Shown here is a 74-nucleotide sequence from Capitella teleta, a member of the family "mir-1990 microRNA precursor family". Gene Ontology terms of the family: RISC complex and miRNA-mediated post-transcriptional gene silencing.
RNA sequence: CGCAGUUGUAAGUUGACAUAGUCCCAGGGCCAAGUACAGCGAUGCAACCCGGGACUACGUUAACUUCCAGCCUC
Numbered sequence: 001c002g003c004a005g006u007u008g009u010a011a012g013u014u015g016a017c018a019u020a021g022u023c024c025c026a027g028g029g030c031c032a033a034g035u036a037c038a039g040c041g042a043u044g045c046a047a048c049c050c051g052g053g054a055c056u057a058c059g060u061u062a063a064c065u066u067c068c069a070g071c072c073u074c
Stems, first nucleotide, its partner, number of pairs: 005071004010066008019057007027049002